[Rfam]
RNA sequence: CAAAAUAUUCAGGGGAGAUUGUGUGACAAUCUGAGAGUAGCUUAUUAAGCUAGACCCUUUGAACCUGUCGGUUAGUACCGUUGUAGGGAGCGAUUUGCAUAGUGCAUU
Numbered sequence: 001c002a003a004a005a006u007a008u009u010c011a012g013g014g015g016a017g018a019u020u021g022u023g024u025g026a027c028a029a030u031c032u033g034a035g036a037g038u039a040g041c042u043u044a045u046u047a048a049g050c051u052a053g054a055c056c057c058u059u060u061g062a063a064c065c066u067g068u069c070g071g072u073u074a075g076u077a078c079c080g081u082u083g084u085a086g087g088g089a090g091c092g093a094u095u096u097g098c099a100u101a102g103u104g105c106a107u108u
Base pairs, nucleotide, nucleotide: 007095009093010092011058012057013056014055017031018030019029020028021027038052039051040050041049042048064087065086066085067084069080070079071078
RNA: TPP riboswitch aptamer (THI element)